[Rfam]
RNA: Small nucleolar RNA SNORA44
RNA sequence: CAGCAUGCUAUCCUAAGGACCUGAGCUCUGUUUGUAGCCCCAGGUUCUCCAAGUGCAUGCAAGAAAAGUGGGUAGUCUUUGACUGUUGUGGCCUUCGUUUGCCAUGAGCAGCCACUCAACUGUCCUACAAUU
Numbered sequence: 001c002a003g004c005a006u007g008c009u010a011u012c013c014u015a016a017g018g019a020c021c022u023g024a025g026c027u028c029u030g031u032u033u034g035u036a037g038c039c040c041c042a043g044g045u046u047c048u049c050c051a052a053g054u055g056c057a058u059g060c061a062a063g064a065a066a067a068g069u070g071g072g073u074a075g076u077c078u079u080u081g082a083c084u085g086u087u088g089u090g091g092c093c094u095u096c097g098u099u100u101g102c103c104a105u106g107a108g109c110a111g112c113c114a115c116u117c118a119a120c121u122g123u124c125c126u127a128c129a130a131u132u
Stems, first nucleotide, its partner, number of pairs: 013043002018039001020037001024033001070125006085112002088105004